A member of the RNA family "Small nucleolar RNA SNORA84" from Leptobrachium leishanense, 131 nucleotides long. Rfam classes the family as an H/ACA-box small nucleolar RNA. On this family, see Marker et al., Curr Biol 2002: "Experimental RNomics: identification of 140 candidates for small non-messenger RNAs in the plant Arabidopsis thaliana". The match comes from Rfam's covariance-model search (84 bits). Rfam 15.1 lists 757 matches to the family in 629 species.

RNA sequence: ACCCUGUGGUUACUGGAGGCUGCAAUUCCGUGCAGAACUGCAGUUAUUAAAGGGCCUAUAUUAACACUGUGAUUUUAAGCAUGGCGGCUAAAUUCUCAUUUAACUUCCAUAGCCCGGUCACAGUCACAUAU
Dot-bracket structure: .(((..((.(.((((.(..((((........))))...).)))).).))..)))............(.((((((....((((((.((.((((......)))).)).)))).))..)))))).)........